[Rfam]
RNA sequence: GGUAGUAGCAAAUAUUCAAAUGAGAACUUUGAAGACUGAAGUGGAGAAAGGUUCCAUGUGAACAGCAGUUGGACAUGGGUUAGUCGAUCCUAAGAGAUAGGGAAGUUCCGUUUUAAAGUGCGCAAUUUUGCGCCGCCUAUCGAAAGGGAAGCAGGUUAAUAUUCCUGCACCAGGAUGUGGAUUUUUUACGGCAACGUAAAUGAACUCGGAGACGCCAGUGGGAGCCCUAGGAAGAGUUUUCUUUUCUUUUUAACAGACUGUCACCGUGAAAUCAGAUUACCUGGAGAUACGGUUCAAUGUUUGGUAGAGCAGGACACCUCUGUCCUGUCUGGUGCGCUCUCAACGGUCCUUGAAAAUCCGAGGGAAAGAAUAAUUUUCACGCCUGGUCGUACUCAUAACCGCAGCAGGUCUCCAAGGUGAACAGCCUCUAGUUGA
Numbered sequence: 001g002g003u004a005g006u007a008g009c010a011a012a013u014a015u016u017c018a019a020a021u022g023a024g025a026a027c028u029u030u031g032a033a034g035a036c037u038g039a040a041g042u043g044g045a046g047a048a049a050g051g052u053u054c055c056a057u058g059u060g061a062a063c064a065g066c067a068g069u070u071g072g073a074c075a076u077g078g079g080u081u082a083g084u085c086g087a088u089c090c091u092a093a094g095a096g097a098u099a100g101g102g103a104a105g106u107u108c109c110g111u112u113u114u115a116a117a118g119u120g121c122g123c124a125a126u127u128u129u130g131c132g133c134c135g136c137c138u139a140u141c142g143a144a145a146g147g148g149a150a151g152c153a154g155g156u157u158a159a160u161a162u163u164c165c166u167g168c169a170c171c172a173g174g175a176u177g178u179g180g181a182u183u184u185u186u187u188a189c190g191g192c193a194a195c196g197u198a199a200a201u202g203a204a205c206u207c208g209g210a211g212a213c214g215c216c217a218g219u220g221g222g223a224g225c226c227c228u229a230g231g232a233a234g235a236g237u238u239u240u241c242u243u244u245u246c247u248u249u250u251u252a253a254c255a256g257a258c259u260g261u262c263a264c265c266g267u268g269a270a271a272u273c274a275g276a277u278u279a280c281c282u283g284g285a286g287a288u289a290c291g292g293u294u295c296a297a298u299g300u301u302u303g304g305u306a307g308a309g310c311a312g313g314a315c316a317c318c319u320c321u322g323u324c325c326u327g328u329c330u331g332g333u334g335c336g337c338u339c340u341c342a343a344c345g346g347u348c349c350u351u352g353a354a355a356a357u358c359c360g361a362g363g364g365a366a367a368g369a370a371u372a373a374u375u376u377u378c379a380c381g382c383c384u385g386g387u388c389g390u391a392c393u394c395a396u397a398a399c400c401g402c403a404g405c406a407g408g409u410c411u412c413c414a415a416g417g418u419g420a421a422c423a424g425c426c427u428c429u430a431g432u433u434g435a
Stems, first nucleotide, its partner, number of pairs: 015033006034433004043413004049393002054078006063071002085389003089147002094141002096112003100109003120133003151168005171385004176381005181375001187198004205362006214347003219342007227332003230250006254303005263293006272284004310327007399408002415427004

Overview:
This 435-nucleotide part of an RNA from Entomortierella parvispora belongs to the Rfam family "Eukaryotic large subunit ribosomal RNA". The match comes from Rfam's covariance-model search (3401 bits).